[Rfam]
Overview
A member of the RNA family "Small nucleolar RNA SNORD16" from Ameiurus melas, 98 nucleotides long. The organism belongs to Ameiurus, within Eukaryota. Its family is annotated with RNA processing and nucleolus in the Gene Ontology. The family is grouped with related families in Rfam's "SNORD16 clan". The base pairs follow the family's consensus structure, which was predicted with PFOLD. For this family Rfam cites "A novel small nucleolar RNA (U16) is encoded inside a ribosomal protein intron and originates by processing of the pre-mRNA" (Fragapane et al., EMBO J, 1993).

RNA sequence: UGCUAUGAUGGUGUAAUUUGCGUCUGACACUGUGAUCAGCGACAGUUGCCUACUGUCUUAUGCUGGCGCGGAGGAUUGACGACAUCUCGGACUGAGCA
Numbered sequence: 001u002g003c004u005a006u007g008a009u010g011g012u013g014u015a016a017u018u019u020g021c022g023u024c025u026g027a028c029a030c031u032g033u034g035a036u037c038a039g040c041g042a043c044a045g046u047u048g049c050c051u052a053c054u055g056u057c058u059u060a061u062g063c064u065g066g067c068g069c070g071g072a073g074g075a076u077u078g079a080c081g082a083c084a085u086c087u088c089g090g091a092c093u094g095a096g097c098a
Stems, first nucleotide, its partner, number of pairs: 001098003021081004030071005039063002041057005